Rfam assigns this 61-nucleotide sequence from Herbaspirillum sp. SJZ107 to the family "Betaproteobacteria toxic small RNA". The source organism's lineage runs through Bacteria, Pseudomonadati, Pseudomonadota, Burkholderiales and Herbaspirillum. A reference for the family is Kimelman et al. (2012), "A vast collection of microbial genes that are toxic to bacteria", Genome Res. Overexpression in amino aid rich medium attenuates growth, suggesting role in repressing amino acid intake and metabolism.

[Rfam]
RNA sequence: UGUCUCCUCUAUCUUCUUCCAAGAAAAUAGAUUCAACCCGCCUCCCGGCGGGUAUUUUUUU
Numbered sequence: 001u002g003u004c005u006c007c008u009c010u011a012u013c014u015u016c017u018u019c020c021a022a023g024a025a026a027a028u029a030g031a032u033u034c035a036a037c038c039c040g041c042c043u044c045c046c047g048g049c050g051g052g053u054a055u056u057u058u059u060u061u
Stems, first nucleotide, its partner, number of pairs: 008031005013023002036053007